[Rfam]
RNA: Purine riboswitch aptamer
Organism: Alteribacter keqinensis
RNA sequence: UAUUGAUGAACACCGACCCGUCGUAUAAUUAAGGGGAUAGGGCCCUUAAGUCUCUACAUAGUCACCGUAAAUGGCUGGUCUACGAGGGAUUGAGUGUGUAUC
Number, nucleotide and partner (000 for none) at each position: 001u000002a000003u000004u000005g000006a000007u000008g000009a000010a000011c000012a000013c000014c000015g000016a000017c000018c088019c087020g000021u085022c084023g083024u082025a081026u000027a000028a000029u049030u048031a047032a046033g045034g044035g043036g000037a000038u000039a000040g000041g000042g000043c035044c034045c033046u032047u031048a030049a029050g000051u000052c000053u000054c000055u000056a000057c000058a000059u077060a076061g075062u074063c073064a072065c000066c000067g000068u000069a000070a000071a000072u064073g063074g062075c061076u060077g059078g000079u000080c000081u025082a024083c023084g022085a021086g000087g019088g018089a000090u000091u000092g000093a000094g000095u000096g000097u000098g000099u000100a000101u000102c000